[Rfam]
RNA sequence: CUUCGUGGCUAGCACUCCCACUGUGACUUGUGUGUUCACUCACAUCACAGUCAGAGUUCUAGCUACGCGG
Numbered sequence: 001c002u003u004c005g006u007g008g009c010u011a012g013c014a015c016u017c018c019c020a021c022u023g024u025g026a027c028u029u030g031u032g033u034g035u036u037c038a039c040u041c042a043c044a045u046c047a048c049a050g051u052c053a054g055a056g057u058u059c060u061a062g063c064u065a066c067g068c069g070g
Stems, first nucleotide, its partner, number of pairs: 004067003009062004014057004021050006030043003
The record is a 70-nucleotide sequence from Leptidea sinapis, which matches "mir-11 microRNA precursor family" in Rfam. The family has 20 seed sequences and 138 matches in Rfam 15.1. The match comes from Rfam's covariance-model search (72 bits).